The family of this 256-nucleotide sequence from Saitozyma podzolica is "Group I catalytic intron". Rfam describes the family as follows. Group I catalytic introns are large self-splicing ribozymes. They catalyse their own excision from mRNA, tRNA and rRNA precursors in a wide range of organisms. The core secondary structure consists of 9 paired regions (P1-P9). These fold to essentially two domains - the P4-P6 domain (formed from the stacking of P5, P4, P6 and P6a helices) and the P3-P9 domain (formed from the P8, P3, P7 and P9 helices). The secondary structure mark-up for this family represents only this conserved core. Group I catalytic introns often have long ORFs inserted in loop regions. The window size for this search is chosen to minimise search time and catch the small examples. A larger window size will find more matches. A reference for the family is Cech (1990), "Self-splicing of group I introns", Annu Rev Biochem. Its family is annotated with Group I intron splicing in the Gene Ontology. Lineage of the source: Eukaryota > Opisthokonta > Fungi > Dikarya > Saitozyma.
[Rfam]
RNA sequence: GUUUAGUCACAAAAAAUUUGAUACUGACUUUAGUUAGUAUAAGGUGUUCCGGUAAAAUCGGGUGAAUUGCAAAGACAUCUCAUAAUGAGACAAUUUGCAGCAAAGCCAUUAUCUGCAUCUAGUAUAUUACUGUAUGAUAAUGGAAUGUUCAACGACUAACGAGUGAGUUAUGUAGACAAUAAUCUCGACACGAGUGCCCGACUAUAUAUAUAUAUAUAUAUAGAUGACAUAGUCUAAACAGUAACGUAAGUUACUG
Numbered sequence: 001g002u003u004u005a006g007u008c009a010c011a012a013a014a015a016a017u018u019u020g021a022u023a024c025u026g027a028c029u030u031u032a033g034u035u036a037g038u039a040u041a042a043g044g045u046g047u048u049c050c051g052g053u054a055a056a057a058u059c060g061g062g063u064g065a066a067u068u069g070c071a072a073a074g075a076c077a078u079c080u081c082a083u084a085a086u087g088a089g090a091c092a093a094u095u096u097g098c099a100g101c102a103a104a105g106c107c108a109u110u111a112u113c114u115g116c117a118u119c120u121a122g123u124a125u126a127u128u129a130c131u132g133u134a135u136g137a138u139a140a141u142g143g144a145a146u147g148u149u150c151a152a153c154g155a156c157u158a159a160c161g162a163g164u165g166a167g168u169u170a171u172g173u174a175g176a177c178a179a180u181a182a183u184c185u186c187g188a189c190a191c192g193a194g195u196g197c198c199c200g201a202c203u204a205u206a207u208a209u210a211u212a213u214a215u216a217u218a219u220a221u222a223g224a225u226g227a228c229a230u231a232g233u234c235u236a237a238a239c240a241g242u243a244a245c246g247u248a249a250g251u252u253a254c255u256g
Stems, first nucleotide, its partner, number of pairs: 001022003005018002029039001031037001058201004063196002068099006078090005100148002106142001111138003152235001154234005204221007241254005